[Rfam]
RNA sequence: GCUCCAGUAGCUCAGGUGGAUAGAGCGCAGGAUUCCUAAUCCUGGUGCCGCAGGUUCGAAUCCUGCCUGGAGCA
Dot-bracket structure: (((((((..((((.........)))).(((((.......))))).....(((((.......)))))))))))).